[Rfam]
RNA sequence: CACGGGGCAAUCCGAGGUGCCCGUGCGCUGUGCUCUGCCGCGGUGGUGCCUUCUGGUAGUCCCGGAGAUG
Numbered sequence: 001c002a003c004g005g006g007g008c009a010a011u012c013c014g015a016g017g018u019g020c021c022c023g024u025g026c027g028c029u030g031u032g033c034u035c036u037g038c039c040g041c042g043g044u045g046g047u048g049c050c051u052u053c054u055g056g057u058a059g060u061c062c063c064g065g066a067g068a069u070g
Stems, first nucleotide, its partner, number of pairs: 003064003007060002015051003

Rfam assigns this 70-nucleotide sequence from Trypanosoma cruzi to the family "Trypanosomatid snoRNA TB9Cs1H2".